[Rfam]
Nucleotides: 050
Stems, first nucleotide, its partner, number of pairs: 004032002006029005013022002015049003019046002
Number, partner (000 for none) and nucleotide at each position: 001000g002000a003000c004032a005031u006029g007028c008027c009026a010025c011000a012000a013022c014021g015049g016048c017047u018000u019046c020045c021014u022013g023000a024000c025010g026009u027008g028007g029006c030000a031005g032004u033000u034000u035000u036000u037000u038000a039000u040000c041000u042000a043000u044000u045020g046019g047017a048016g049015c050000g